[Rfam]
RNA: Small nucleolar RNA snoR97
Organism: Nicotiana sylvestris
RNA sequence: CUUUCAUGUUUCUAUUAAUAAAAUUCAUAAAGUUAGCGUUGUUUAUCAGCUUCUUCUCUUGAAUAUCCAACGGGAUGGAUUUAAAUCAUGGCACUACAUGU
Dot-bracket structure: ..................................((.((((......((.(((.((((.............)))).))).))......)))).))......